[Rfam]
RNA sequence: CCGGAUACCUUGACGGGCCGCACCGUAAAGCGACCCGAUCCCAGCCGAAA
Numbered sequence: 001c002c003g004g005a006u007a008c009c010u011u012g013a014c015g016g017g018c019c020g021c022a023c024c025g026u027a028a029a030g031c032g033a034c035c036c037g038a039u040c041c042c043a044g045c046c047g048a049a050a
Stems, first nucleotide, its partner, number of pairs: 002025003013039001014037004019032003